RNA: Histone 3' UTR stem-loop
Organism: Diabrotica virgifera
RNA sequence: AAAACGGUUCUUUUCAGAACCACAAAUUAUUAUUAAUGUUUGAAU
Numbered sequence: 001a002a003a004a005c006g007g008u009u010c011u012u013u014u015c016a017g018a019a020c021c022a023c024a025a026a027u028u029a030u031u032a033u034u035a036a037u038g039u040u041u042g043a044a045u
Base pairs, nucleotide, nucleotide: 006021007020008019009018010017011016